This 376-nucleotide sequence from Apilactobacillus kunkeei belongs to the Rfam family "Bacterial RNase P class B". It scores 337 bits against the family's covariance model. Taxonomically the source falls in Apilactobacillus (Bacteria, Bacillati, Bacillota, Lactobacillales). About the family: Ribonuclease P (RNase P) is a ubiquitous endoribonuclease, found in archaea, bacteria and eukarya as well as chloroplasts and mitochondria. Its best characterised activity is the generation of mature 5'-ends of tRNAs by cleaving the 5'-leader elements of precursor-tRNAs. Cellular RNase Ps are ribonucleoproteins. RNA from bacterial RNase Ps retains its catalytic activity in the absence of the protein subunit, i.e. it is a ribozyme.

RNA sequence: UGUUCUGAGUAAUCGCGGUCAACUUAUGUUGGCUGAGGAAAGUCCACUCUCGCACAAGCUGCGAUGCUUGUAGUGUUCGUGCUCGGUGAAAAAAUAAGCCGGGGGACUACAAUUUGUAGUAAUGGCGAAGAAACGAGCUAAGGUUUUGCUAUGCUUUAGUACUUCUGAAAGUGCCACAGUGACGAUACAGUAUCGGAAACGAUACUGGUGGAACGCGGUAAACCCCGCGAGCGGGAAACCCAAACUUUGGUAGGGGAGCUUCACACACGGAAAUUGAACCAAGUGUGGGGGAGAAAUUUAUUUCUCAGAUAGAUGAUUACUACUUUAUAUUUAAAGGCCUGACUUAAAUAUAAAGCACAAAACAUGGCUUACAGGA
Dot-bracket structure: ...(((((((((((.((((((........))))))....[[[.[[[..(((((((((((......)))))).....(((((((((((..........))))))(.(((((.....)))))..)((.((((....((((...(((...)))..)))).....)))).....(((((............((((((((....)))))))).........)))..))))))))))))))...(((...........)))...(((((((..................)))))))((((((....))))))........))))))).((((((((((((.........)))))))))))).........]]]]]].).)))